[Rfam]
RNA sequence: CAAGUAGGGCAUGUAAUCGCGGCUGGCAGGACCGAAAGGGGCCAGGUGAGGAAAGUCCGGGCUUCACAGGGCAGGAUGCCGGAUAACGUCCGGCGGAGGCGACUCCAGGGACAGUGCAACAGAGAUAAACCGCCUGCGGAGCAGGUAAGGGUGGAAAGGCAGUGUAAGAGACUACCGCCGCACUGGUAACAGGGCGGGCACAUGUAAACCCCAUCCGAAGCAAGACCGAACAAAAAGCUAUGUGGCUGCCCGUCACGCUUUUAGGUGGGUCGCUUGAGGCUGUCGGCAACGGCAGUCCUGGAUAGAUGAUUACACAUGACAUAACCCGCUUAUCGCCCUGCUUGUUCU
Dot-bracket structure: ((((((((((((((((((.((.(((((.............))))).))....[[[..[[[[((((...[[[[.((((((((((.....)))))(((((....)))).)((...(((((...........((((((((...))))))..)).......((.(((.......))).))(((((.(((....))).)))).)...)))..)))))))))))))...((((.....((((((...(((((.]]]]))))))))))).....))))......((((((((....))))))))..........)))))))..........]]]]]]].).))))))))))....
Numbered sequence: 001c002a003a004g005u006a007g008g009g010c011a012u013g014u015a016a017u018c019g020c021g022g023c024u025g026g027c028a029g030g031a032c033c034g035a036a037a038g039g040g041g042c043c044a045g046g047u048g049a050g051g052a053a054a055g056u057c058c059g060g061g062c063u064u065c066a067c068a069g070g071g072c073a074g075g076a077u078g079c080c081g082g083a084u085a086a087c088g089u090c091c092g093g094c095g096g097a098g099g100c101g102a103c104u105c106c107a108g109g110g111a112c113a114g115u116g117c118a119a120c121a122g123a124g125a126u127a128a129a130c131c132g133c134c135u136g137c138g139g140a141g142c143a144g145g146u147a148a149g150g151g152u153g154g155a156a157a158g159g160c161a162g163u164g165u166a167a168g169a170g171a172c173u174a175c176c177g178c179c180g181c182a183c184u185g186g187u188a189a190c191a192g193g194g195c196g197g198g199c200a201c202a203u204g205u206a207a208a209c210c211c212c213a214u215c216c217g218a219a220g221c222a223a224g225a226c227c228g229a230a231c232a233a234a235a236a237g238c239u240a241u242g243u244g245g246c247u248g249c250c251c252g253u254c255a256c257g258c259u260u261u262u263a264g265g266u267g268g269g270u271c272g273c274u275u276g277a278g279g280c281u282g283u284c285g286g287c288a289a290c291g292g293c294a295g296u297c298c299u300g301g302a303u304a305g306a307u308g309a310u311u312a313c314a315c316a317u318g319a320c321a322u323a324a325c326c327c328g329c330u331u332a333u334c335g336c337c338c339u340g341c342u343u344g345u346u347c348u
Stems, first nucleotide, its partner, number of pairs: 001344010011333001012314007020048002023045005053331003058328004062220004069251004074216005079093005094108001095106004109211002114209002116205003130150002132146006158176002161173003177199001178197004183192003224271004233262006242256005278297008